Rfam assigns this 120-nucleotide sequence from Sus scrofa to the family "Small nucleolar RNA SNORA27". The base pairs follow the family's consensus structure. Rfam describes the family as follows. ACA27 is a member of the H/ACA class of snoRNA that guide the sites of modification of uridines to pseudouridines. The family is grouped with related families in Rfam's "SNORA27 clan". By type it is an H/ACA-box small nucleolar RNA. Gene Ontology terms of the family: RNA processing and nucleolus.
RNA sequence: CACCCCCUUUUCACUUUGCCAAUGGGACUUAUGUCUUUAUUGGUCAUUCAAAUGGGGCAAAGGAAAUAUCUUUUUAAAACUCAAGCAAGGAGUUCCCAUUGAGGCGCAGCAGAAAGGAAU
Numbered sequence: 001c002a003c004c005c006c007c008u009u010u011u012c013a014c015u016u017u018g019c020c021a022a023u024g025g026g027a028c029u030u031a032u033g034u035c036u037u038u039a040u041u042g043g044u045c046a047u048u049c050a051a052a053u054g055g056g057g058c059a060a061a062g063g064a065a066a067u068a069u070c071u072u073u074u075u076a077a078a079a080c081u082c083a084a085g086c087a088a089g090g091a092g093u094u095c096c097c098a099u100u101g102a103g104g105c106g107c108a109g110c111a112g113a114a115a116g117g118a119a120u
Stems, first nucleotide, its partner, number of pairs: 032059005040051004069117003072113003082101001083099001084094003